RNA: Group II catalytic intron D1-D4-1
Nucleotides: 106
Base pairs, nucleotide, nucleotide: 001030002029005024008021009020010019011018012017046053047052055106056105057104064099065098066097067096068095
Number, partner (000 for none) and nucleotide at each position: 001030c002029g003000c004000c005024u006000c007000a008021u009020g010019c011018c012017u013000g014000a015000a016000a017012g018011g019010g020009c021008a022000a023000c024005g025000g026000u027000g028000u029002c030001g031000a032000a033000u034000c035000g036000g037000a038000g039000c040000g041000a042000g043000g044000c045000g046053u047052c048000a049000g050000c051000a052047g053046a054000g055106g056105c057104c058000g059000u060000a061000g062000u063000a064099g065098u066097c067096a068095c069000g070000g071000g072000a073000u074000a075000g076000g077000u078000c079000g080000g081000c082000g083000a084000g085000a086000c087000u088000g089000a090000a091000g092000c093000u094000a095068g096067u097066g098065g099064c100000g101000a102000a103000g104057g105056g106055c